[Rfam]
RNA: Vault RNA
Organism: Albula glossodonta
RNA sequence: GCGCCGGUUUAGCUCAGUGGUUACUUCGUGUGUUACUGCAAACGAUGCUACCCUCUUCGGAGGGUCGAACCACGGGUGCGGUCCGGCGUUUUG
Numbered sequence: 001g002c003g004c005c006g007g008u009u010u011a012g013c014u015c016a017g018u019g020g021u022u023a024c025u026u027c028g029u030g031u032g033u034u035a036c037u038g039c040a041a042a043c044g045a046u047g048c049u050a051c052c053c054u055c056u057u058c059g060g061a062g063g064g065u066c067g068a069a070c071c072a073c074g075g076g077u078g079c080g081g082u083c084c085g086g087c088g089u090u091u092u093g
Stems, first nucleotide, its partner, number of pairs: 002088006012077004017073004025069004